[Rfam]
RNA sequence: AGGAAAGUAACCGGGAGCUCCGAUCAUGCGAGGAGCUGAGAGGACGCUGGAGCAUACGAGGCGUCGACCGGAUGAACCUGUCCGGGUAAUGCCGGCGAAGGGAAAGGAUAACCUCUCAUG
Numbered sequence: 001a002g003g004a005a006a007g008u009a010a011c012c013g014g015g016a017g018c019u020c021c022g023a024u025c026a027u028g029c030g031a032g033g034a035g036c037u038g039a040g041a042g043g044a045c046g047c048u049g050g051a052g053c054a055u056a057c058g059a060g061g062c063g064u065c066g067a068c069c070g071g072a073u074g075a076a077c078c079u080g081u082c083c084g085g086g087u088a089a090u091g092c093c094g095g096c097g098a099a100g101g102g103a104a105a106g107g108a109u110a111a112c113c114u115c116u117c118a119u120g
Stems, first nucleotide, its partner, number of pairs: 008106001011071004017036005043065005077101003082095004
A member of the RNA family "TPP riboswitch aptamer (THI element)" from Corynebacterium gerontici, 120 nucleotides long. Rfam links the family to the GO term thiamine pyrophosphate binding. The match comes from Rfam's covariance-model search (57 bits). The base pairs follow the family's consensus structure, which is taken from published work. Lineage of the source: Bacteria > Actinomycetota > Mycobacteriales > Corynebacteriaceae > Corynebacterium.